[Rfam]
RNA sequence: UUUUUUACUGAUGCAGCAUCCUCAAGAUUCACAUGCAAAACAUAUAGUAAGGCCAUGCCCUUUUUUAUUAUGAAACAUGAGAAUCUUGAUGAUGCUGCAUCGGCCAUUAA
Numbered sequence: 001u002u003u004u005u006u007a008c009u010g011a012u013g014c015a016g017c018a019u020c021c022u023c024a025a026g027a028u029u030c031a032c033a034u035g036c037a038a039a040a041c042a043u044a045u046a047g048u049a050a051g052g053c054c055a056u057g058c059c060c061u062u063u064u065u066u067a068u069u070a071u072g073a074a075a076c077a078u079g080a081g082a083a084u085c086u087u088g089a090u091g092a093u094g095c096u097g098c099a100u101c102g103g104c105c106a107u108u109a110a
Stems, first nucleotide, its partner, number of pairs: 010101011022089009032079002
RNA: mir-172 microRNA precursor family